[Rfam]
RNA sequence: GAGUACAACAUGCAUGCGAGCUGGUGGGCGGUAAACCCACGAAGCGCAAGUAACCUGACUGGUGGGAUGGCCUGUGCCUGCACCAUCAACCGACCAUGAUCUUCUGUGAAAGGUUUGAGUGCGAGCAUGUUUGUUGUGA
Numbered sequence: 001g002a003g004u005a006c007a008a009c010a011u012g013c014a015u016g017c018g019a020g021c022u023g024g025u026g027g028g029c030g031g032u033a034a035a036c037c038c039a040c041g042a043a044g045c046g047c048a049a050g051u052a053a054c055c056u057g058a059c060u061g062g063u064g065g066g067a068u069g070g071c072c073u074g075u076g077c078c079u080g081c082a083c084c085a086u087c088a089a090c091c092g093a094c095c096a097u098g099a100u101c102u103u104c105u106g107u108g109a110a111a112g113g114u115u116u117g118a119g120u121g122c123g124a125g126c127a128u129g130u131u132u133g134u135u136g137u138g139a
Stems, first nucleotide, its partner, number of pairs: 005137006012130006020045003025039004049056002061087005069078002089120002091117003094113002101106001